[Rfam]
RNA sequence: GAUCUGUGAUGAGAAAUAGCCAAAUCUGAGCACCAGUAGAUCUCCUGGUUUACAUGGUGUAUGAUCUAUAUGCAGUUCUGGGA
Numbered sequence: 001g002a003u004c005u006g007u008g009a010u011g012a013g014a015a016a017u018a019g020c021c022a023a024a025u026c027u028g029a030g031c032a033c034c035a036g037u038a039g040a041u042c043u044c045c046u047g048g049u050u051u052a053c054a055u056g057g058u059g060u061a062u063g064a065u066c067u068a069u070a071u072g073c074a075g076u077u078c079u080g081g082g083a
Stems, first nucleotide, its partner, number of pairs: 030060005038051004